[Rfam]
This 66-nucleotide RNA from Thalassomonas phage BA3 belongs to the Rfam family "int-alpA RNA".
The match comes from Rfam's covariance-model search (52 bits).
The family has 167 seed sequences and 577 matches in Rfam 15.1.
Pairs were carried over by alignment from the consensus structure, which is taken from published work.
RNA sequence: UUUACGCCUAGGCUUAGCGGCUGAAAACCAGAAACCUCACUGGCUGGCGUGAAUGUUUUUUUGAGG
Numbered sequence: 001u002u003u004a005c006g007c008c009u010a011g012g013c014u015u016a017g018c019g020g021c022u023g024a025a026a027a028c029c030a031g032a033a034a035c036c037u038c039a040c041u042g043g044c045u046g047g048c049g050u051g052a053a054u055g056u057u058u059u060u061u062u063g064a065g066g
Base pairs, nucleotide, nucleotide: 001053002052003051004050005049006048007047008046011022012021013020014019028043029042030041031040036066037065